Rfam assigns this 80-nucleotide RNA sequence from Hyalella azteca to the family "mir-184 microRNA precursor family". Gene Ontology terms of the family: RISC complex and gene silencing by miRNA. Lineage of the source: Eukaryota > Metazoa > Ecdysozoa > Pancrustacea > Hyalella.

RNA sequence: CUUAUCACGUUUCCUUAUCAUUUCUACUUGCCAGUUUGUUUUGAUCACUGGACGGAGAACUGAUAAGGGCUUGUGAUAAA
Numbered sequence: 001c002u003u004a005u006c007a008c009g010u011u012u013c014c015u016u017a018u019c020a021u022u023u024c025u026a027c028u029u030g031c032c033a034g035u036u037u038g039u040u041u042u043g044a045u046c047a048c049u050g051g052a053c054g055g056a057g058a059a060c061u062g063a064u065a066a067g068g069g070c071u072u073g074u075g076a077u078a079a080a
Stems, first nucleotide, its partner, number of pairs: 012069009022059003027055002031051002